Description:
A member of the RNA family "SAM riboswitch aptamer (S box leader)" from Cytobacillus depressus, 118 nucleotides long.

[Rfam]
RNA sequence: CUCUUAUUAAGAGAGGCAGAGGGACUGGCCCUACGAAGCCCGGCAACCAUUCAUAUUUCUUUUAAAUAUGAACAGGUGCUAAAUCCUGCAAAAUACUUUGUAUUUUGAUAGAUAAGAG
Numbered sequence: 001c002u003c004u005u006a007u008u009a010a011g012a013g014a015g016g017c018a019g020a021g022g023g024a025c026u027g028g029c030c031c032u033a034c035g036a037a038g039c040c041c042g043g044c045a046a047c048c049a050u051u052c053a054u055a056u057u058u059c060u061u062u063u064a065a066a067u068a069u070g071a072a073c074a075g076g077u078g079c080u081a082a083a084u085c086c087u088g089c090a091a092a093a094u095a096c097u098u099u100g101u102a103u104u105u106u107g108a109u110a111g112a113u114a115a116g117a118g
Base pairs, nucleotide, nucleotide: 001118002117003116004115005114006113007112008111013041015040016039017038021031022030023029025088027086028085042080043079044078045077047076048075050072051071052070053069054068055067056066057065084110089107090106091105092104093103094102

Lineage of the source: Bacteria > Bacillati > Bacillota > Bacilli > Cytobacillus.